[Rfam]
RNA sequence: AAUCAUUAAUAGGUGUGCCUUCAUAUAAGUCCGAUAAUACGGUUCGGAUGUCUCUACUAAGUUACCUUAAAUAACUUAUCUAUGACGGUAGGCCGGCGUAUA
Numbered sequence: 001a002a003u004c005a006u007u008a009a010u011a012g013g014u015g016u017g018c019c020u021u022c023a024u025a026u027a028a029g030u031c032c033g034a035u036a037a038u039a040c041g042g043u044u045c046g047g048a049u050g051u052c053u054c055u056a057c058u059a060a061g062u063u064a065c066c067u068u069a070a071a072u073a074a075c076u077u078a079u080c081u082a083u084g085a086c087g088g089u090a091g092g093c094c095g096g097c098g099u100a101u102a
Stems, first nucleotide, its partner, number of pairs: 018088002021085005029049006058078007

Background
The record is a 102-nucleotide sequence from Lysinibacillus odysseyi, which matches "Purine riboswitch aptamer" in Rfam. The organism belongs to Lysinibacillus odysseyi, within Bacteria.